Record summary:
Shown here is a 401-nucleotide sequence from Falsiruegeria litorea, a member of the family "Bacterial RNase P class A". The base pairs follow the family's consensus structure, which is taken from published work. Its family is annotated with ribonuclease P activity, tRNA processing and dimeric ribonuclease P complex in the Gene Ontology. It is annotated as a ribozyme. NCBI's taxonomy places the organism under Bacteria, Pseudomonadati, Pseudomonadota, Alphaproteobacteria, Falsiruegeria litorea.
Nucleotides: 401
Stems, first nucleotide, its partner, number of pairs: 001397010011386001012352007020043002023040006048384003052381005057218004068285001071213004075089005090104001091102004105209002110207002112203003127149002129145006157175006176198001177196008222309004232300006279293001281291002316335008
Number, partner (000 for none) and nucleotide at each position: 001397g002396c003395g004394g005393a006392g007391g008390g009389c010388c011386g012352g013351a014350u015349g016348g017347c018346c019000g020043c021042g022000g023040g024039u025038g026037g027036g028035g029000g030000c031000u032000u033000g034000c035028c036027c037026c038025c039024a040023c041000g042021c043020g044000a045000g046000g047000a048384a049383a050382g051000u052381c053380c054379g055378g056377a057218c058217u059216c060215c061000a062000u063000g064000a065000a066000g067000c068285a069000a070000c071213g072212g073211u074210g075089c076088c077087g078086g079085g080000u081000a082000a083000c084000g085079c086078c087077c088076g089075g090104g091102c092101g093100g094099g095000g096000a097000a098000a099094c100093c101092c102091g103000a104090c105209g106208g107000a108000g109000a110207g111206c112203g113202c114201c115000a116000c117000a118000g119000a120000a121000a122000u123000g124000a125000a126000a127149c128148c129145g130144c131143c132142g133141c134140g135000c136000c137000u138000g139000u140134c141133g142132c143131g144130g145129u146000a147000a148128g149127g150000a151000u152000g153000a154000a155000a156000c157175g158174g159173u160172g161171g162170g163000g164000u165000a166000a167000g168000a169000g170162c171161c172160c173159a174158c175157c176198g177196c178195g179194c180193c181192c182191c183190u184189g185000g186000c187000a188000a189184c190183a191182g192181g193180g194179g195178u196177g197000g198176c199000a200000c201114g202113g203112c204000a205000a206111g207110c208106c209105c210074c211073a212072c213071c214000u215060g216059g217058a218057g219000c220000a221000a222309u223308g224307c225306c226000a227000a228000a229000u230000a231000g232300g233299a234298c235297c236296c237295c238000c239000g240000c241000g242000c243000g244000g245000g246000c247000c248000c249000g250000u251000g252000u253000c254000g255000g256000c257000c258000u259000u260000g261000g262000u263000c264000g265000a266000u267000a268000c269000c270000g271000c272000c273000g274000c275000u276000a277000g278000g279293c280000g281291c282290g283000c284000u285068u286000c287000a288000g289000c290282c291281g292000a293279g294000a295237g296236g297235g298234g299233u300232c301000g302000g303000g304000u305000u306225g307224g308223c309222a310000g311000c312000u313000c314000g315000a316335g317334c318333c319332g320331c321330g322329c323328a324000g325000c326000a327000a328323u329322g330321c331320g332319u333318g334317g335316c336000c337000u338000a339000g340000a341000u342000g343000a344000a345000u346018g347017g348016u349015c350014a351013u352012c353000a354000a355000g356000g357000g358000g359000g360000g361000a362000a363000a364000c365000c366000c367000c368000u369000g370000a371000a372000c373000a374000g375000a376000a377056u378055c379054c380053g381052g382050c383049u384048u385000a386011c387000a388010g389009g390008c391007c392006u393005u394004c395003c396002g397001c398000g399000c400000g401000u